[Rfam]
Notes: The record is a 100-nucleotide RNA sequence from Dysosmobacter welbionis, which matches "azaaromatic riboswitch aptamer (yjdF RNA)" in Rfam.

RNA sequence: UAGCGCAAAGAUAAAAACACGUCCCGGUUGGUAGUCCGGGAGCGGCCCAUGUGCCGUCAGUAACCUGCCUCCUUGGUUGUCCGUUCUUUGUGCGAGACCU
Numbered sequence: 001u002a003g004c005g006c007a008a009a010g011a012u013a014a015a016a017a018c019a020c021g022u023c024c025c026g027g028u029u030g031g032u033a034g035u036c037c038g039g040g041a042g043c044g045g046c047c048c049a050u051g052u053g054c055c056g057u058c059a060g061u062a063a064c065c066u067g068c069c070u071c072c073u074u075g076g077u078u079g080u081c082c083g084u085u086c087u088u089u090g091u092g093c094g095a096g097a098c099c100u
Stems, first nucleotide, its partner, number of pairs: 004092008022041006042057005067077003
Background: The family's consensus secondary structure is taken from published work.